[Rfam]
RNA: mir-181 microRNA precursor family
RNA sequence: AGGCUUGGGGGAACAUUCAACGCUGUCGGUGAGUUUGAGCAGCUGAAGGCAAACCAUCGACCGUUGAGUGGACCCUGCAGCCUU
Number, nucleotide and partner (000 for none) at each position: 001a084002g083003g082004c080005u079006u000007g000008g076009g000010g000011g000012a000013a000014c070015a069016u068017u067018c066019a065020a064021c063022g062023c000024u000025g061026u060027c059028g058029g057030u056031g055032a000033g054034u053035u052036u051037g000038a000039g000040c000041a000042g000043c000044u000045g000046a000047a000048g000049g000050c000051a036052a035053a034054c033055c031056a030057u029058c028059g027060a026061c025062c022063g021064u020065u019066g018067a017068g016069u015070g014071g000072a000073c000074c000075c000076u008077g000078c000079a005080g004081c000082c003083u002084u001